The record is a 113-nucleotide sequence from Hordeum vulgare, which matches "mir-399 microRNA precursor family" in Rfam. Lineage of the source: Eukaryota > Streptophytina > Magnoliopsida > Mesangiospermae > Hordeum vulgare. Rfam describes the family as follows. mir-399 was identified in both Arabidopsis thaliana and Oryza sativa computationally and was later experimentally verified. mir-399 is thought to target mRNAs coding for a phosphatase transporter. The mature sequence is excised from the 3' arm of the hairpin. It scores 71 bits against the family's covariance model.
RNA sequence: GUGAGAAUCACAGUGCAGUUCUCCUCUGGCAUGGAUGCCAAUGUAGCAGGUCCUAGACAAGGGACUAUGGUAUCGCCGUCCCUGCCAAAGGAGAAUUGCCCUGCCAUUCAGUA
Number, nucleotide and partner (000 for none) at each position: 001g000002u000003g000004a000005g109006a108007a107008u106009c000010a000011c103012a102013g101014u000015g099016c098017a097018g096019u095020u000021c093022u092023c091024c090025u000026c000027u087028g086029g085030c084031a083032u000033g081034g080035a079036u078037g077038c000039c000040a000041a000042u000043g000044u000045a000046g000047c000048a000049g000050g000051u000052c000053c000054u000055a000056g000057a000058c000059a000060a000061g000062g000063g000064a000065c000066u000067a000068u000069g000070g000071u000072a000073u000074c000075g000076c000077c037078g036079u035080c034081c033082c000083u031084g030085c029086c028087a027088a000089a000090g024091g023092a022093g021094a000095a019096u018097u017098g016099c015100c000101c013102u012103g011104c000105c000106a008107u007108u006109c005110a000111g000112u000113a000